[Rfam]
RNA sequence: CAGUCCGCACGCGACUGGCGAAUCAAGUGGGGCACCACUGGGGAGCGUGCGGAAGGGACAACUGCCGCUCGCCUGGGUAAAGUGU
Numbered sequence: 001c002a003g004u005c006c007g008c009a010c011g012c013g014a015c016u017g018g019c020g021a022a023u024c025a026a027g028u029g030g031g032g033c034a035c036c037a038c039u040g041g042g043g044a045g046c047g048u049g050c051g052g053a054a055g056g057g058a059c060a061a062c063u064g065c066c067g068c069u070c071g072c073c074u075g076g077g078u079a080a081a082g083u084g085u
Stems, first nucleotide, its partner, number of pairs: 004053009015042002017073005027038004063079004
Dot-bracket structure: ...(((((((((..(([[[[[.....((((....))))..))..))))))))).........((((..]]]]]..))))......
A member of the RNA family "ZMP/ZTP riboswitch aptamer (pfl RNA motif)" from Paenibacillus oceani, 85 nucleotides long. NCBI's taxonomy places the organism under Bacteria, Bacillati, Caryophanales, Paenibacillaceae, Paenibacillus. The match comes from Rfam's covariance-model search (67 bits). Gene Ontology terms of the family: regulation of purine nucleotide biosynthetic process and one-carbon metabolic process. Pairs were carried over by alignment from the consensus structure, which is taken from published work.